[Rfam]
RNA sequence: CCGAUACAGUGAUGAUAACAUAGUUCAGCAGAGUACAUAGUGACGAACACCAGCUUUGUCUUUCGCUCCUAUCUGAUGUAUCUG
Number, nucleotide and partner (000 for none) at each position: 001c000002c000003g000004a081005u080006a079007c078008a077009g000010u000011g000012a000013u000014g000015a000016u000017a000018a000019c000020a000021u000022a000023g000024u000025u000026c000027a000028g000029c000030a000031g000032a000033g000034u000035a000036c000037a000038u000039a000040g000041u000042g000043a000044c000045g000046a000047a000048c000049a000050c000051c000052a000053g000054c000055u000056u000057u000058g000059u000060c000061u000062u000063u000064c000065g000066c000067u000068c000069c000070u000071a000072u000073c000074u000075g000076a000077u008078g007079u006080a005081u004082c000083u000084g000